[Rfam]
RNA sequence: AACUUGCACUGGGGGAGCUGCAUUUGCGGCUGAGAGGUUUAUCCGACCCUUAGCACCCGAACUAGAUAAUACUAGCGUGGGGAAGUGCAGCCUGACUCUC
Numbered sequence: 001a002a003c004u005u006g007c008a009c010u011g012g013g014g015g016a017g018c019u020g021c022a023u024u025u026g027c028g029g030c031u032g033a034g035a036g037g038u039u040u041a042u043c044c045g046a047c048c049c050u051u052a053g054c055a056c057c058c059g060a061a062c063u064a065g066a067u068a069a070u071a072c073u074a075g076c077g078u079g080g081g082g083a084a085g086u087g088c089a090g091c092c093u094g095a096c097u098c099u100c
Base pairs, nucleotide, nucleotide: 006088007087008086009085010084011050012049013048014047017030018029019028020027021026037043056081057080058079059078062075063074064073065072
A member of the RNA family "TPP riboswitch aptamer (THI element)" from Halobacillus sp. BAB-2008, 100 nucleotides long. About the family: Vitamin B(1) in its active form thiamin pyrophosphate (TPP) is an essential coenzyme that is synthesised by coupling of pyrimidine and thiazole moieties in bacteria. Rfam links the family to the GO term thiamine pyrophosphate binding. Pairs were carried over by alignment from the consensus structure, which is taken from published work. The match comes from Rfam's covariance-model search (69 bits).